RNA sequence: UAUUAAAAAUUUUAUUUAUUUGUAUUGUUAAAACCUGACAUGGUUGAUGGAAUACAUGUUACGUAUACUUUAUACUUAUGUACAUGGAUAAGUUUUUAACAAUAGAAAUAGAUAAAAUUUUUAAUA
Numbered sequence: 001u002a003u004u005a006a007a008a009a010u011u012u013u014a015u016u017u018a019u020u021u022g023u024a025u026u027g028u029u030a031a032a033a034c035c036u037g038a039c040a041u042g043g044u045u046g047a048u049g050g051a052a053u054a055c056a057u058g059u060u061a062c063g064u065a066u067a068c069u070u071u072a073u074a075c076u077u078a079u080g081u082a083c084a085u086g087g088a089u090a091a092g093u094u095u096u097u098a099a100c101a102a103u104a105g106a107a108a109u110a111g112a113u114a115a116a117a118u119u120u121u122u123a124a125u126a
Stems, first nucleotide, its partner, number of pairs: 002125015018109004023104004028099006